[Rfam]
RNA: Streptomyces RNA 1601
Organism: Streptomyces sp. CB01580
RNA sequence: GACGACCGGCUGGGCGACUAUGCGCCCGGCCCACAAGUGGAGGCUCCGAUCUCCCACCUGGCUGCCCCUCGGGGCGGCGGGUCACCGGUCAGGCGGUGCCCAUCGUUCCGUACGGACGAUGGAGCCGCCCGAUGCGCCCCGCGGAGGACCGCGGCGGUGUUCCGGUUGUUUCAGGAGCCCCGCCUGUGUCCCGUCGGGGCAUUUUUC
Numbered sequence: 001g002a003c004g005a006c007c008g009g010c011u012g013g014g015c016g017a018c019u020a021u022g023c024g025c026c027c028g029g030c031c032c033a034c035a036a037g038u039g040g041a042g043g044c045u046c047c048g049a050u051c052u053c054c055c056a057c058c059u060g061g062c063u064g065c066c067c068c069u070c071g072g073g074g075c076g077g078c079g080g081g082u083c084a085c086c087g088g089u090c091a092g093g094c095g096g097u098g099c100c101c102a103u104c105g106u107u108c109c110g111u112a113c114g115g116a117c118g119a120u121g122g123a124g125c126c127g128c129c130c131g132a133u134g135c136g137c138c139c140c141g142c143g144g145a146g147g148a149c150c151g152c153g154g155c156g157g158u159g160u161u162c163c164g165g166u167u168g169u170u171u172c173a174g175g176a177g178c179c180c181c182g183c184c185u186g187u188g189u190c191c192c193g194u195c196g197g198g199g200c201a202u203u204u205u206u207c
Base pairs, nucleotide, nucleotide: 004090005089006088007087008086009085012027013026028083029082030081031080032079034060035059037057038056039055040054041052042051061078062077063076064075065074066073067072092129093128094127095126096125100122101121102120103119104118105117106116107115136200137199138198139197140196141195143191144190150188151187152186153184154183155182156181157180159178160177161176162175163174